Rfam assigns this 379-nucleotide sequence from Microbulbifer agarilyticus to the family "Bacterial RNase P class A".
The source organism's lineage runs through Bacteria, Pseudomonadota, Cellvibrionales, Microbulbiferaceae and Microbulbifer.
RNA sequence: CGAGUCAGCCAGACAAUCGCUGUUCGAUUACCUUCGGGUGGUUGUAUGGAGGAAAGUCCGGGCUCCAUAGGGUGGGACGCCAGGUAACGCCUGGGGGGCGCGAGCCUACGGAAAGUGCAGCAGAGAGUAGACCGCCGAUGGCCUGUUCGCAGGCACAGGUAAGGGUGAAAGGGUGCGGUAAGAGCGCACCGCGCGGCUGGUAACAGUCCGCGGCACGGUAAACCCCGUUCGGAGCAAGACCAAAUAGGCCCCCUUUAGCCUUGUGCUAGCAGGUGUGACCCGCACUGGGGGCGGGUAGGUCGCUUGAGGUGUCUGGUGACAGGCAUCCCAGAUGAAUGAUUGUCCGCGACAGAACCCGGCUUAUCGGCUGACUCACCAA
Numbered sequence: 001c002g003a004g005u006c007a008g009c010c011a012g013a014c015a016a017u018c019g020c021u022g023u024u025c026g027a028u029u030a031c032c033u034u035c036g037g038g039u040g041g042u043u044g045u046a047u048g049g050a051g052g053a054a055a056g057u058c059c060g061g062g063c064u065c066c067a068u069a070g071g072g073u074g075g076g077a078c079g080c081c082a083g084g085u086a087a088c089g090c091c092u093g094g095g096g097g098g099c100g101c102g103a104g105c106c107u108a109c110g111g112a113a114a115g116u117g118c119a120g121c122a123g124a125g126a127g128u129a130g131a132c133c134g135c136c137g138a139u140g141g142c143c144u145g146u147u148c149g150c151a152g153g154c155a156c157a158g159g160u161a162a163g164g165g166u167g168a169a170a171g172g173g174u175g176c177g178g179u180a181a182g183a184g185c186g187c188a189c190c191g192c193g194c195g196g197c198u199g200g201u202a203a204c205a206g207u208c209c210g211c212g213g214c215a216c217g218g219u220a221a222a223c224c225c226c227g228u229u230c231g232g233a234g235c236a237a238g239a240c241c242a243a244a245u246a247g248g249c250c251c252c253c254u255u256u257a258g259c260c261u262u263g264u265g266c267u268a269g270c271a272g273g274u275g276u277g278a279c280c281c282g283c284a285c286u287g288g289g290g291g292c293g294g295g296u297a298g299g300u301c302g303c304u305u306g307a308g309g310u311g312u313c314u315g316g317u318g319a320c321a322g323g324c325a326u327c328c329c330a331g332a333u334g335a336a337u338g339a340u341u342g343u344c345c346g347c348g349a350c351a352g353a354a355c356c357c358g359g360c361u362u363a364u365c366g367g368c369u370g371a372c373u374c375a376c377c378a379a
Stems, first nucleotide, its partner, number of pairs: 002374009011364001012344007020049004025044007054362003058359005063234004070281004075230005080094005095109001096107004110225002115223002117219002132164002134160003141154005172190006191214001192212005197206003238301004248292006272286005308327008